[Rfam]
RNA: Streptomyces RNA 3202
RNA sequence: CCACGUCCCGACGCACUCCCCCCGGCGCCGGGACCUUCCCCAGCCGGGCUUCGGCGCCUUCCCCCGGGCGUCGGGGCCCGGCUGUUGC
Numbered sequence: 001c002c003a004c005g006u007c008c009c010g011a012c013g014c015a016c017u018c019c020c021c022c023c024g025g026c027g028c029c030g031g032g033a034c035c036u037u038c039c040c041c042a043g044c045c046g047g048g049c050u051u052c053g054g055c056g057c058c059u060u061c062c063c064c065c066g067g068g069c070g071u072c073g074g075g076g077c078c079c080g081g082c083u084g085u086u087g088c
Stems, first nucleotide, its partner, number of pairs: 005034006012027003041084010052073008